[Rfam]
RNA sequence: AUACUUACCUGGCAGGGGCAGUUCGUGAUCAAGUAGGCGGACUGUUCGUUUUAGAACUUGAGCAUAGCACAGCGUCUCAGGGUCUUUGACGCGAACAUCCUUAGGGGUGUCUCGACUGUUAAAUUUUUGUUUGUGGGAAGUGAGCGCCAUGCGCCGCCUCCUG
Numbered sequence: 001a002u003a004c005u006u007a008c009c010u011g012g013c014a015g016g017g018g019c020a021g022u023u024c025g026u027g028a029u030c031a032a033g034u035a036g037g038c039g040g041a042c043u044g045u046u047c048g049u050u051u052u053a054g055a056a057c058u059u060g061a062g063c064a065u066a067g068c069a070c071a072g073c074g075u076c077u078c079a080g081g082g083u084c085u086u087u088g089a090c091g092c093g094a095a096c097a098u099c100c101u102u103a104g105g106g107g108u109g110u111c112u113c114g115a116c117u118g119u120u121a122a123a124u125u126u127u128u129g130u131u132u133g134u135g136g137g138a139a140g141u142g143a144g145c146g147c148c149a150u151g152c153g154c155c156g157c158c159u160c161c162u163g
Stems, first nucleotide, its partner, number of pairs: 012119004016047011048090003053086001055083001057081001059079003062075002092114003095110003099107002135162004144154003

Overview
The record is a 163-nucleotide RNA sequence from Basidiobolus meristosporus, which matches "U1 spliceosomal RNA" in Rfam. By type it is a spliceosomal small nuclear RNA. Lineage of the source: Eukaryota > Basidiobolomycota > Basidiobolomycetes > Basidiobolaceae > Basidiobolus meristosporus.